[Rfam]
RNA sequence: CCGUUCUUGUGUUAUUUUCUGGACGUUGUUCAAGUCCAGCGAUCGUCAAACAGAACGCAAAGUAAUGCAACGAAUCACUCCACAAUGUUGGGUCUACUUUGCCAGGACAGCAUCAUUACUUAAGGAUUGCAACAGC
Numbered sequence: 001c002c003g004u005u006c007u008u009g010u011g012u013u014a015u016u017u018u019c020u021g022g023a024c025g026u027u028g029u030u031c032a033a034g035u036c037c038a039g040c041g042a043u044c045g046u047c048a049a050a051c052a053g054a055a056c057g058c059a060a061a062g063u064a065a066u067g068c069a070a071c072g073a074a075u076c077a078c079u080c081c082a083c084a085a086u087g088u089u090g091g092g093u094c095u096a097c098u099u100u101g102c103c104a105g106g107a108c109a110g111c112a113u114c115a116u117u118a119c120u121u122a123a124g125g126a127u128u129g130c131a132a133c134a135g136c
Stems, first nucleotide, its partner, number of pairs: 002057006010048002016042002019039004084117004092108003
Small nucleolar RNA psi18S-1377: a 136-nucleotide sequence from Drosophila melanogaster. psi18S-1377 is a member of the H/ACA class of snoRNA. This family is responsible for guiding the modification of uridines 1377 and 1279 to pseudouridine in Drosophila 18S rRNA. The organism belongs to Sophophora, within Eukaryota. By type it is an H/ACA-box small nucleolar RNA. Rfam links the family to the GO terms RNA processing and nucleolus. The sequence is in the family's curated seed alignment.